[Rfam]
Rfam assigns this 103-nucleotide sequence from Cucumis melo to the family "MIR162_1 microRNA precursor family".
RNA sequence: GUCAGUGGAGGCAGCGGUUCAUCGACCCCUUCUUGCGAUUUGUACUGAUUCGUAUCACAAAAACACGAACCGGUCGAUAAACCUCUGCAUCCAGCGCUCUCUC
Numbered sequence: 001g002u003c004a005g006u007g008g009a010g011g012c013a014g015c016g017g018u019u020c021a022u023c024g025a026c027c028c029c030u031u032c033u034u035g036c037g038a039u040u041u042g043u044a045c046u047g048a049u050u051c052g053u054a055u056c057a058c059a060a061a062a063a064c065a066c067g068a069a070c071c072g073g074u075c076g077a078u079a080a081a082c083c084u085c086u087g088c089a090u091c092c093a094g095c096g097c098u099c100u101c102u103c
Stems, first nucleotide, its partner, number of pairs: 007092003012087003016083004021078007030069003
The family is grouped with related families in Rfam's "MIR167 microRNA precursor clan". The source organism's lineage runs through Eukaryota, Streptophytina, Magnoliopsida, Pentapetalae and Cucumis.